[Rfam]
RNA: c-di-AMP riboswitch aptamer (ydaO/yuaA leader)
Organism: Desulfosporosinus sp. Sb-LF
RNA sequence: AAGAUAUAAAAGCUGAAUCUAGUUUCACACCUAGAGCGGGGGAUACUUUUAUGGGGUGAAACGCGCAUACCAUACGCGUCGGGCUAACACCUUGAUGCCCGAAUCCGUCAACUAACCUCGUAAGCUAAGAAGGGUGAAAAU
Numbered sequence: 001a002a003g004a005u006a007u008a009a010a011a012g013c014u015g016a017a018u019c020u021a022g023u024u025u026c027a028c029a030c031c032u033a034g035a036g037c038g039g040g041g042g043a044u045a046c047u048u049u050u051a052u053g054g055g056g057u058g059a060a061a062c063g064c065g066c067a068u069a070c071c072a073u074a075c076g077c078g079u080c081g082g083g084c085u086a087a088c089a090c091c092u093u094g095a096u097g098c099c100c101g102a103a104u105c106c107g108u109c110a111a112c113u114a115a116c117c118u119c120g121u122a123a124g125c126u127a128a129g130a131a132g133g134g135u136g137a138a139a140a141u
Stems, first nucleotide, its partner, number of pairs: 011126004018035005036121006046053001054106003062078004081100004